[Rfam]
RNA sequence: AAUUGGAGUGAUGAAAUCUAUACCUUAGGUAGAUGCAACAGACCGUUUUGGUCACUUACUGCAUCUGCCGAUGCUGGGGUUUGUCAUAGUUACACUGACCAAAU
Numbered sequence: 001a002a003u004u005g006g007a008g009u010g011a012u013g014a015a016a017u018c019u020a021u022a023c024c025u026u027a028g029g030u031a032g033a034u035g036c037a038a039c040a041g042a043c044c045g046u047u048u049u050g051g052u053c054a055c056u057u058a059c060u061g062c063a064u065c066u067g068c069c070g071a072u073g074c075u076g077g078g079g080u081u082u083g084u085c086a087u088a089g090u091u092a093c094a095c096u097g098a099c100c101a102a103a104u
Base pairs, nucleotide, nucleotide: 001104003102004101005100006099
A member of the RNA family "Small nucleolar RNA SNORD46" from Stercorarius parasiticus, 104 nucleotides long. Rfam links the family to the GO terms RNA processing and nucleolus. Lineage of the source: Eukaryota > Opisthokonta > Metazoa > Dipnotetrapodomorpha > Stercorarius. The match comes from Rfam's covariance-model search (58 bits). Rfam classes the family as a C/D-box small nucleolar RNA. Pairs were carried over by alignment from the consensus structure. On this family, see Nicoloso et al., J Mol Biol 1996: "Intron-encoded, antisense small nucleolar RNAs: the characterization of nine novel species points to their direct role as guides for the 2'-O-ribose methylation of rRNAs". Rfam's curators write: U40 is a C/D box small nucleolar RNA, also known as snoZ153 in plants. The human sequence has also been annotated in the sequence databases as U46. U40 is encoded in intron 2 of the ribosomal protein S8 gene in human, and is hypothesised to guide methylation of 2'-O-ribose residues on 28S ribosomal RNA. This family represents vertebrate U40.